[Rfam]
RNA sequence: GGCAGAGUAGAUGUUUGCGCGUAAAGUGUCAGCCGGACGGGGAGUUGCCGGCCGAACGAAAAGCCCACCCGGGCUUGCGGUGCAAGCGUCGCAUCCCGCUGCU
Number, nucleotide and partner (000 for none) at each position: 001g103002g102003c101004a100005g099006a000007g000008u000009a000010g090011a089012u088013g087014u086015u085016u084017g083018c082019g081020c079021g078022u077023a000024a000025a000026g057027u056028g000029u055030c054031a000032g052033c051034c050035g049036g048037a000038c000039g000040g096041g095042g094043a000044g092045u000046u000047g000048c036049c035050g034051g033052c032053c000054g030055a029056a027057c026058g000059a000060a000061a076062a075063g074064c073065c072066c071067a000068c000069c000070c000071g066072g065073g064074c063075u062076u061077g022078c021079g020080g000081u019082g018083c017084a016085a015086g014087c013088g012089u011090c010091g000092c044093a000094u042095c041096c040097c000098g000099c005100u004101g003102c002103u001